[Rfam]
RNA sequence: GAAGCAAGCCGACUGUCGCCGUUCGUCUUUUGAUGGAGGGAGGAAAGUCCGGGCAGCAUAGAGUAACCGUGCUUCCUAACAGGAAGGAUUCAUCUGAGUAAUUAGAUGGGUACAGAAAGUGCAGCAGAAAAUAGGUAGCCUUCCUUCACUCUUCGGAGUUUCGGAAGGUGAUAGUGAAAAGGGGAGGUAAGAGCUCACCGUUCCGGUGGCGACAUUCGGAAGCUAGGUAAACCUCACGGGCUGAAAGAUCAUGUAAACCAAGCGAGUAGAGCUGCUCGUUCUCUUCCCGACGAUUCUGUCGGGAUGCUUGGAGGGUAGAUCGAUAGAUGCUGAUGGUGACGUCAGUGCUAGAUAAAUGACAGUCAGUUCUGAAGUUUAUUCUUUGGAAUGUACAGAACCCGGCUUAUGGCUUGUUUUUCUU
Numbered sequence: 001g002a003a004g005c006a007a008g009c010c011g012a013c014u015g016u017c018g019c020c021g022u023u024c025g026u027c028u029u030u031u032g033a034u035g036g037a038g039g040g041a042g043g044a045a046a047g048u049c050c051g052g053g054c055a056g057c058a059u060a061g062a063g064u065a066a067c068c069g070u071g072c073u074u075c076c077u078a079a080c081a082g083g084a085a086g087g088a089u090u091c092a093u094c095u096g097a098g099u100a101a102u103u104a105g106a107u108g109g110g111u112a113c114a115g116a117a118a119g120u121g122c123a124g125c126a127g128a129a130a131a132u133a134g135g136u137a138g139c140c141u142u143c144c145u146u147c148a149c150u151c152u153u154c155g156g157a158g159u160u161u162c163g164g165a166a167g168g169u170g171a172u173a174g175u176g177a178a179a180a181g182g183g184g185a186g187g188u189a190a191g192a193g194c195u196c197a198c199c200g201u202u203c204c205g206g207u208g209g210c211g212a213c214a215u216u217c218g219g220a221a222g223c224u225a226g227g228u229a230a231a232c233c234u235c236a237c238g239g240g241c242u243g244a245a246a247g248a249u250c251a252u253g254u255a256a257a258c259c260a261a262g263c264g265a266g267u268a269g270a271g272c273u274g275c276u277c278g279u280u281c282u283c284u285u286c287c288c289g290a291c292g293a294u295u296c297u298g299u300c301g302g303g304a305u306g307c308u309u310g311g312a313g314g315g316u317a318g319a320u321c322g323a324u325a326g327a328u329g330c331u332g333a334u335g336g337u338g339a340c341g342u343c344a345g346u347g348c349u350a351g352a353u354a355a356a357u358g359a360c361a362g363u364c365a366g367u368u369c370u371g372a373a374g375u376u377u378a379u380u381c382u383u384u385g386g387a388a389u390g391u392a393c394a395g396a397a398c399c400c401g402g403c404u405u406a407u408g409g410c411u412u413g414u415u416u417u418u419c420u421u
Base pairs, nucleotide, nucleotide: 001417002416003415004414005413006412007411008410009409010408011364012363013362014361015360016359017358019040020039022037023036024035025034026033027032045405046404047403049402050401051400052399053398054243055242056241057240063300067239068238069237070236071235072086073085074084075083076082087113088111089110090109091108092107093106094105095104096103097102114234115233119232120231121228122227136173137172138169139168140167141166142165143164144163181199182198184196185195186194200223201221202220203219204218205217206215207214208213247321248320249319250318258311259310260309261308262307293305294304295303296302297301328347329346330345331344332343333342334341335340
A member of the RNA family "Bacterial RNase P class A" from Fluviicola taffensis, 421 nucleotides long. Gene Ontology terms of the family: ribonuclease P activity, tRNA processing and dimeric ribonuclease P complex. By type it is a ribozyme. Rfam's curators write: Ribonuclease P (RNase P) is a ubiquitous endoribonuclease, found in archaea, bacteria and eukarya as well as chloroplasts and mitochondria.